[Rfam]
RNA sequence: GAUUUUUGAGGUGAGAAAUGGCUCCUCAUACGCUGAUGUGAUGUAUUCUAUCAGUAAAUAGAGAUGCAGGACAAGCCGACCUGCCAAUAAUC
Number, nucleotide and partner (000 for none) at each position: 001g092002a091003u090004u089005u000006u087007u086008g085009a000010g000011g029012u028013g027014a026015g025016a000017a000018a000019u078020g077021g076022c075023u074024c000025c015026u014027c013028a012029u011030a000031c061032g055033c054034u053035g052036a051037u050038g049039u000040g000041a000042u000043g000044u000045a000046u000047u000048c000049u038050a037051u036052c035053a034054g033055u032056a000057a000058a000059u000060a000061g031062a000063g000064a000065u000066g084067c083068a082069g081070g080071a000072c000073a000074a023075g022076c021077c020078g019079a000080c070081c069082u068083g067084c066085c008086a007087a006088u000089a004090a003091u002092c001
RNA: skipping-rope RNA
Organism: Clostridium sp. CAG:221